[Rfam]
RNA sequence: GGUACUUGACAGGAACGGUCGUAUAGUACGAGAGGAACUACGACUGGUUGCCACUGGUGUAUCGGUUGUCCGAGAGGGCAGCUGCCGAGAAGCUACGCAACACGGGGUAAGAGCUGAACGCAUCUAAGCUCGAAACCCACCUGAAAAAGAAGUACCACCACGGUCACUCGUAGAAGACGAGUUCGAUAGACUCGGGGUGUACGCGUCGAGGCAACGAGACGUUCAGCCCGCGAGCACUAACAGACCAAG
Numbered sequence: 001g002g003u004a005c006u007u008g009a010c011a012g013g014a015a016c017g018g019u020c021g022u023a024u025a026g027u028a029c030g031a032g033a034g035g036a037a038c039u040a041c042g043a044c045u046g047g048u049u050g051c052c053a054c055u056g057g058u059g060u061a062u063c064g065g066u067u068g069u070c071c072g073a074g075a076g077g078g079c080a081g082c083u084g085c086c087g088a089g090a091a092g093c094u095a096c097g098c099a100a101c102a103c104g105g106g107g108u109a110a111g112a113g114c115u116g117a118a119c120g121c122a123u124c125u126a127a128g129c130u131c132g133a134a135a136c137c138c139a140c141c142u143g144a145a146a147a148a149g150a151a152g153u154a155c156c157a158c159c160a161c162g163g164u165c166a167c168u169c170g171u172a173g174a175a176g177a178c179g180a181g182u183u184c185g186a187u188a189g190a191c192u193c194g195g196g197g198u199g200u201a202c203g204c205g206u207c208g209a210g211g212c213a214a215c216g217a218g219a220c221g222u223u224c225a226g227c228c229c230g231c232g233a234g235c236a237c238u239a240a241c242a243g244a245c246c247a248a249g
Base pairs, nucleotide, nucleotide: 001156002155003154004153005152006151007150010143011142012141013140016046017045018044019043020042021041022040023039047101048100049099050098051097055095056094057093062088063087064086065085066084067080068079069078070077071076104138105137106136111131112130113129114128115127162246163245164244165243166182167181168180169179170178187239188238189237191234192233193232194231195229196228197227203222204221205220206219207218210215

Rfam assigns this 249-nucleotide part of an RNA from Halobaculum gomorrense to the family "Archaeal large subunit ribosomal RNA". The match comes from Rfam's covariance-model search (2750 bits). For this family Rfam cites "Crystal structure of the ribosome at 5.5 A resolution" (Yusupov et al., Science, 2001).